[Rfam]
RNA sequence: GUCCGGGUACUGCCCGGUGAACAGCGUGGGUCUACUGGGCACGCA
Numbered sequence: 001g002u003c004c005g006g007g008u009a010c011u012g013c014c015c016g017g018u019g020a021a022c023a024g025c026g027u028g029g030g031u032c033u034a035c036u037g038g039g040c041a042c043g044c045a
Stems, first nucleotide, its partner, number of pairs: 012032001014030002017027002
RNA: Mycobacterium sRNA Ms_AS-5